Rfam assigns this 265-nucleotide RNA sequence from Acidaminococcus sp. CAG:917 to the family "Bacterial large signal recognition particle RNA". Rfam classes the family as a non-coding RNA gene. A reference for the family is Rosenblad et al. (2003), "SRPDB: Signal Recognition Particle Database", Nucleic Acids Res.

RNA sequence: CCGUGCUAGACGGGGAGCCAGCGGUGCCCUGUAAACCGCAAUCCGCUAUAGCGGUGUCGAAUACCGAUUGAGGUGCAAUCUAUGGAAGGUUGCGCUGUGCAAGGGAUGUUGAUAACAAGGUCUUGUGCAAUGCUAUGCUGUGAACCGUGUCAGAGCUUGACCGCAGCAGCACUAAGCAGAUUUUAGUGUGUGCCACAAGGAAGCUUUGAGGGAGUUACCUACACAGUUUCCGCUUCGGUAGAAUGUAUCGAUCGAGGUUGCACGG
Numbered sequence: 001c002c003g004u005g006c007u008a009g010a011c012g013g014g015g016a017g018c019c020a021g022c023g024g025u026g027c028c029c030u031g032u033a034a035a036c037c038g039c040a041a042u043c044c045g046c047u048a049u050a051g052c053g054g055u056g057u058c059g060a061a062u063a064c065c066g067a068u069u070g071a072g073g074u075g076c077a078a079u080c081u082a083u084g085g086a087a088g089g090u091u092g093c094g095c096u097g098u099g100c101a102a103g104g105g106a107u108g109u110u111g112a113u114a115a116c117a118a119g120g121u122c123u124u125g126u127g128c129a130a131u132g133c134u135a136u137g138c139u140g141u142g143a144a145c146c147g148u149g150u151c152a153g154a155g156c157u158u159g160a161c162c163g164c165a166g167c168a169g170c171a172c173u174a175a176g177c178a179g180a181u182u183u184u185a186g187u188g189u190g191u192g193c194c195a196c197a198a199g200g201a202a203g204c205u206u207u208g209a210g211g212g213a214g215u216u217a218c219c220u221a222c223a224c225a226g227u228u229u230c231c232g233c234u235u236c237g238g239u240a241g242a243a244u245g246u247a248u249c250g251a252u253c254g255a256g257g258u259u260g261c262a263c264g265g
Base pairs, nucleotide, nucleotide: 001265002264003263004262005261006260009058010057011056012030013029014028015027017025018024019023035055036054037053038052039051063258064257065256072249073248074247075246076245079242080241081240082239083238085236086235087234088233092229095226096225097224098223099222103219104218105216106215107214113211116208117207118206119205120204121203122199123198124197125196126195127194128190129189131188132187133186134185135184138179139178140177141176147172148171149170150169155164156163